RNA sequence: ACGCAACACAAAGCGCCAGGGCUGUGAGAUCGAGAAAAACACAGCUGACGAGGUGGAGGUUUAUCGAAAUGUUCGGCGGAUGCCUCCCGGUUGUUCAUCGCAACCGAAAGCAUGAGCCCAAACCAGAAAGGCGACUUUCUGAACAAUGGCUGAUGUACCGAUGAUU
Numbered sequence: 001a002c003g004c005a006a007c008a009c010a011a012a013g014c015g016c017c018a019g020g021g022c023u024g025u026g027a028g029a030u031c032g033a034g035a036a037a038a039a040c041a042c043a044g045c046u047g048a049c050g051a052g053g054u055g056g057a058g059g060u061u062u063a064u065c066g067a068a069a070u071g072u073u074c075g076g077c078g079g080a081u082g083c084c085u086c087c088c089g090g091u092u093g094u095u096c097a098u099c100g101c102a103a104c105c106g107a108a109a110g111c112a113u114g115a116g117c118c119c120a121a122a123c124c125a126g127a128a129a130g131g132c133g134a135c136u137u138u139c140u141g142a143a144c145a146a147u148g149g150c151u152g153a154u155g156u157a158c159c160g161a162u163g164a165u166u
Base pairs, nucleotide, nucleotide: 020046021045022044023043024042025041026040055087056086057085058084059083064076065075066074067073088106089105090104091103092102093101110156111155112154113153115151116150124141125140126139127138128137129136130135
RNA: glmS glucosamine-6-phosphate activated ribozyme aptamer